[Rfam]
The family of this 45-nucleotide sequence from Aramus guarauna is "Histone 3' UTR stem-loop". Rfam's curators write: The mRNAs of metazoan histone genes lack a poly-A tail. 3' end processing occurs at a site between a highly conserved stem-loop (modelled by this family) and a purine rich region around 20 nts downstream (the histone downstream element, or HDE). Rfam 15.1 lists 44,596 matches to the family in 976 species. By type it is a cis-regulatory element.
RNA sequence: CCAAAGGCUCUUUUAAGAGCCACCACACUUUCAUAAAAAGAACUG
Numbered sequence: 001c002c003a004a005a006g007g008c009u010c011u012u013u014u015a016a017g018a019g020c021c022a023c024c025a026c027a028c029u030u031u032c033a034u035a036a037a038a039a040g041a042a043c044u045g
Stems, first nucleotide, its partner, number of pairs: 006021006